[Rfam]
RNA sequence: CCAGACGGCCGGACGGCUGCUGCCGGGGGCAACCCUGGUGGAGGAAAGUCCGGGCUCCACGGGAAUACGGUGCCGGCUAACCGCCGGCGGGGGCGACCCUAGGGAAAGUGCCACAGAAAACAAACCGCCCGCACGCGGCCCGUCCUCGGACGGAUCACCUGCGGGCAAGGGUGAAACGGUGCGGCAAGAGCGCACCGCGCCCCUGGCAACAGGGGCGGCAGGGCAAACCCCACCGGGAGCAAGACCGAAUAGGGGCGGCCGGCGGGCCGGCAUUGGUCUUCGGGCCGCGCCGGUGACGCAGAGGCGUUUCCGCCUCGUCGCCCGGGUUGGUCGCGUGAGGCGCGCAGCAAUGCGCGUCCCAGAGGAAUGGCCGUCCCGCUUCCCGGAGUGACCCGGGGGGCGGACAGAACCCGGCUUACAGGCCGUCUGGCGUU
Numbered sequence: 001c002c003a004g005a006c007g008g009c010c011g012g013a014c015g016g017c018u019g020c021u022g023c024c025g026g027g028g029g030c031a032a033c034c035c036u037g038g039u040g041g042a043g044g045a046a047a048g049u050c051c052g053g054g055c056u057c058c059a060c061g062g063g064a065a066u067a068c069g070g071u072g073c074c075g076g077c078u079a080a081c082c083g084c085c086g087g088c089g090g091g092g093g094c095g096a097c098c099c100u101a102g103g104g105a106a107a108g109u110g111c112c113a114c115a116g117a118a119a120a121c122a123a124a125c126c127g128c129c130c131g132c133a134c135g136c137g138g139c140c141c142g143u144c145c146u147c148g149g150a151c152g153g154a155u156c157a158c159c160u161g162c163g164g165g166c167a168a169g170g171g172u173g174a175a176a177c178g179g180u181g182c183g184g185c186a187a188g189a190g191c192g193c194a195c196c197g198c199g200c201c202c203c204u205g206g207c208a209a210c211a212g213g214g215g216c217g218g219c220a221g222g223g224c225a226a227a228c229c230c231c232a233c234c235g236g237g238a239g240c241a242a243g244a245c246c247g248a249a250u251a252g253g254g255g256c257g258g259c260c261g262g263c264g265g266g267c268c269g270g271c272a273u274u275g276g277u278c279u280u281c282g283g284g285c286c287g288c289g290c291c292g293g294u295g296a297c298g299c300a301g302a303g304g305c306g307u308u309u310c311c312g313c314c315u316c317g318u319c320g321c322c323c324g325g326g327u328u329g330g331u332c333g334c335g336u337g338a339g340g341c342g343c344g345c346a347g348c349a350a351u352g353c354g355c356g357u358c359c360c361a362g363a364g365g366a367a368u369g370g371c372c373g374u375c376c377c378g379c380u381u382c383c384c385g386g387a388g389u390g391a392c393c394c395g396g397g398g399g400g401c402g403g404a405c406a407g408a409a410c411c412c413g414g415c416u417u418a419c420a421g422g423c424c425g426u427c428u429g430g431c432g433u434u
Base pairs, nucleotide, nucleotide: 001430002429003428004427005426006425007424008423009422010421011419012375013374014373015372016371017370018369020041021040022039023038024037025036026035027034028033046417047416048415050414051413052412053411054410055239056238057237058236063310064309065308068235069234070233071232072231073087074086075085076084077083088102089100090099091098092097103230104229108228109227110224111223112222125170126169127166128165129164130163131162132161133160135158178196179195180194181193182192183191197219198217199216200215201214202213203212204211205210243332244331245330246329253323254322255321256320257319258318301316302315303314304313305312339358340357341356342355343354344353345352346351
The family of this 434-nucleotide sequence from Limobrevibacterium gyesilva is "Bacterial RNase P class A". Its family is annotated with tRNA processing, dimeric ribonuclease P complex and ribonuclease P activity in the Gene Ontology. It is annotated as a ribozyme. From the family's description: Ribonuclease P (RNase P) is a ubiquitous endoribonuclease, found in archaea, bacteria and eukarya as well as chloroplasts and mitochondria.